[Rfam]
The record is a 227-nucleotide sequence from Atractosteus spatula, which matches "Small nucleolar RNA SNORD17" in Rfam. It is annotated as a C/D-box small nucleolar RNA. A reference for the family is Huttenhofer et al. (2001), "RNomics: an experimental approach that identifies 201 candidates for novel, small, non-messenger RNAs in mouse", EMBO J. NCBI's taxonomy places the organism under Eukaryota, Opisthokonta, Deuterostomia, Chordata, Atractosteus. It scores 90 bits against the family's covariance model.
RNA sequence: GUGAGAUGAUGAACUUGUUUAUCCAUUCUCUGAGCACUGCUGGCCCCUGUCUCUGCAGCACUCACGGCCUGUUCUAGGCCUGAGUGUCUCAGCUCCCAGACUCGGCUCGGCCAUUCCAGCGUUCUGCUGGGGGGUGGAGCAGGGGUCUGGAGAGCUGGAGCAGGACUGGAGGCUGUAGCAAGAGGCAGAACCAGCCUCUGCAGAGACGAGUCAAACAGUCUGAUCAC
Number, nucleotide and partner (000 for none) at each position: 001g000002u000003g000004a000005g000006a000007u000008g000009a000010u226011g225012a224013a000014c222015u000016u000017g219018u218019u217020u000021a000022u000023c000024c000025a211026u210027u209028c208029u000030c205031u204032g000033a000034g201035c200036a000037c000038u000039g179040c178041u177042g176043g173044c172045c171046c000047c169048u168049g166050u165051c164052u000053c163054u162055g161056c160057a000058g087059c086060a085061c084062u083063c082064a081065c000066g080067g079068c078069c077070u076071g000072u000073u000074c000075u000076a070077g069078g068079c067080c066081u064082g063083a062084g061085u060086g059087u058088c000089u158090c157091a156092g155093c154094u153095c152096c000097c000098a000099g000100a000101c000102u143103c142104g140105g000106c000107u137108c136109g135110g000111c133112c132113a000114u000115u131116c130117c129118a128119g127120c126121g125122u000123u000124c000125u121126g120127c119128u118129g117130g116131g115132g112133g111134g000135u109136g108137g107138a000139g000140c104141a000142g103143g102144g000145g000146u000147c000148u000149g000150g000151a000152g095153a094154g093155c092156u091157g090158g089159a000160g056161c055162a054163g053164g051165a050166c049167u000168g048169g047170a000171g045172g044173c043174u000175g000176u042177a041178g040179c039180a000181a199182g198183a197184g196185g195186c194187a000188g192189a000190a000191c000192c188193a000194g186195c185196c184197u183198c182199u181200g035201c034202a000203g000204a031205g030206a000207c000208g028209a027210g026211u025212c000213a000214a000215a000216c000217a019218g018219u017220c000221u000222g014223a000224u012225c011226a010227c000